The family of this 402-nucleotide RNA sequence from Rubellimicrobium rubrum is "Bacterial RNase P class A".
Pairs were carried over by alignment from the consensus structure, which is taken from published work.
[Rfam]
RNA sequence: GUGGAUGGCUGGAUGAUCGCGGGGGCCGCAAGGCCUACGAGGAAAGUCCGGACUCCGGAAAGCACGGUGCCGGGUAACGCCCGGCCGGGGAAACCCGAGGGAAAGCGCCACAGAGAACGAGACCGCCCGUCGGACCGGAAGUUCGCCAACGGACAAAUCCGCCGGGCAAGGGUGAAACGGUGGAGUAAGAGCCCACCGCGGGACGGGCAACCGGACCGGCACGGCAAGCCCCACCGGGAGCAAUGCCAAAUAGGGGCCCCGCGUCCGCAAGGGCAGGGAUGCUUCAACCCAGGGGCCCGGGUUGGCAGCUUGAGGCCCGUCAGUAACGGCGGGUCCAGAGGAAUGGUCAUCCAGGGGGCUUCGGUCCCCGGACAGAAUCCGGCUUACAGGCCGUCCACGCAC
Dot-bracket structure: ((((((((((((((((((.((.(((((....))))).))....[[[.[[[[[((((....[[..((((((((((.....)))))(((((....)))).)((...(((((.............(((((((.(((.........................))).)))))..)).......(((((.........)))))((((..(((....)))..))).)..)))..)))))))))))))...((((......((((((................(((.(..]].).)))..)))))).....)))).......(((((((......)))))))..........)))))))..........................]]]]]]]].).))))))))))....